RNA: Small nucleolar RNA Z157/R69/R10
Organism: Hibiscus trionum
RNA sequence: AAGGCUGCAAUGAUGAAGCAAUAUAUUUUGUGGACUAGAGUUCUUGAUCUAGGUUUUCCUAGAAAUUGAAGACUAACCCAUGGCUGUCUAAGUAUUUUU
Numbered sequence: 001a002a003g004g005c006u007g008c009a010a011u012g013a014u015g016a017a018g019c020a021a022u023a024u025a026u027u028u029u030g031u032g033g034a035c036u037a038g039a040g041u042u043c044u045u046g047a048u049c050u051a052g053g054u055u056u057u058c059c060u061a062g063a064a065a066u067u068g069a070a071g072a073c074u075a076a077c078c079c080a081u082g083g084c085u086g087u088c089u090a091a092g093u094a095u096u097u098u099u
Stems, first nucleotide, its partner, number of pairs: 001099004006094003041070003048063006